This 77-nucleotide RNA from Dicentrarchus labrax belongs to the Rfam family "mir-92 microRNA precursor family". For this family Rfam cites "miRNPs: a novel class of ribonucleoproteins containing numerous microRNAs" (Mourelatos et al., Genes Dev, 2002). Gene Ontology terms of the family: RISC complex and miRNA-mediated post-transcriptional gene silencing. Taxonomically the source falls in Dicentrarchus (Eukaryota, Metazoa, Clupeocephala, Ctenosquamata). Rfam's curators write: This family represents the microRNA precursor mir-92.

RNA sequence: CUCUCUGUGCAGGUGGGGAUUAGUAGCAAUGCUGUGUAACUAGAGGUAUUGCACUUGUCCCGGCCUGUGUGGGGAUG
Numbered sequence: 001c002u003c004u005c006u007g008u009g010c011a012g013g014u015g016g017g018g019a020u021u022a023g024u025a026g027c028a029a030u031g032c033u034g035u036g037u038a039a040c041u042a043g044a045g046g047u048a049u050u051g052c053a054c055u056u057g058u059c060c061c062g063g064c065c066u067g068u069g070u071g072g073g074g075a076u077g
Base pairs, nucleotide, nucleotide: 004073005072006071009068010067011066012065013064014063016061017060018059019058020057022055023054024053026052027051028050029049030048031047032046033045